[Rfam]
RNA sequence: AUUUCUAUAUCGCUUAAUCCAUUAUUGGAGCGGGGGACCCACUUUUGUAUCUGGGGUGAAUCCUAAAAGUUAGGUAGGGCUACUCUUUAGUCCGAAUCCGGCAGCUAACCUCGUAAGCGUAAGAAGAGAGGAAGG
Numbered sequence: 001a002u003u004u005c006u007a008u009a010u011c012g013c014u015u016a017a018u019c020c021a022u023u024a025u026u027g028g029a030g031c032g033g034g035g036g037a038c039c040c041a042c043u044u045u046u047g048u049a050u051c052u053g054g055g056g057u058g059a060a061u062c063c064u065a066a067a068a069g070u071u072a073g074g075u076a077g078g079g080c081u082a083c084u085c086u087u088u089a090g091u092c093c094g095a096a097u098c099c100g101g102c103a104g105c106u107a108a109c110c111u112c113g114u115a116a117g118c119g120u121a122a123g124a125a126g127a128g129a130g131g132a133a134g135g
Stems, first nucleotide, its partner, number of pairs: 011119004018029003030114006040053002054099003062074004077093004

The family of this 135-nucleotide RNA from Peribacillus deserti is "c-di-AMP riboswitch aptamer (ydaO/yuaA leader)". It scores 109 bits against the family's covariance model. Rfam links the family to the GO terms regulation of gene expression and cyclic-di-AMP binding.